This 52-nucleotide RNA from Ensifer meliloti belongs to the Rfam family "serC leader". Its family is annotated with regulation of gene expression in the Gene Ontology. Pairs were carried over by alignment from the consensus structure. From the family's description: This family is a putative regulatory RNA structure that is found upstream of the serC-serA operon in some alpha-proteobacteria. The final stem of the structure overlaps the ribosome binding site of the serC reading frame. Lineage of the source: Bacteria > Pseudomonadati > Pseudomonadota > Alphaproteobacteria > Ensifer meliloti. Rfam's curators put it in the seed alignment.
RNA sequence: CGGCGGGACACCCCUCCCCAACGAGGGGCUUCUAUCUGAGAGGAUAGCAUAU
Numbered sequence: 001c002g003g004c005g006g007g008a009c010a011c012c013c014c015u016c017c018c019c020a021a022c023g024a025g026g027g028g029c030u031u032c033u034a035u036c037u038g039a040g041a042g043g044a045u046a047g048c049a050u051a052u
Stems, first nucleotide, its partner, number of pairs: 011028006032047006